[Rfam]
Nucleotides: 092
Base pairs, nucleotide, nucleotide: 001092002091003090004089005088006087007086011085013084014083016081017080019078020077021076022075023074024073025072026071027070029068030067031066032065033064035063036062037061038060039059040058041057
Number, partner (000 for none) and nucleotide at each position: 001092g002091g003090u004089a005088g006087c007086g008000u009000u010000g011085g012000a013084g014083u015000g016081g017080g018000u019078a020077a021076u022075c023074u024073c025072a026071u027070g028000c029068g030067g031066u032065a033064a034000c035063u036062g037061u038060g039059a040058g041057u042000g043000u044000g045000u046000g047000a048000a049000u050000u051000g052000u053000a054000a055000a056000a057041g058040c059039u060038c061037a062036u063035a064033u065032u066031a067030c068029c069000u070027c071026g072025u073024g074023g075022g076021g077020u078019u079000u080017c081016c082000c083014a084013c085011c086007c087006g088005u089004u090003a091002c092001c
The record is a 92-nucleotide RNA from Apis mellifera, which matches "mir-3477 microRNA precursor family" in Rfam. The organism belongs to Apis, within Eukaryota. Rfam's curators put it in the seed alignment. Pairs were carried over by alignment from the consensus structure, which was predicted with RNAalifold.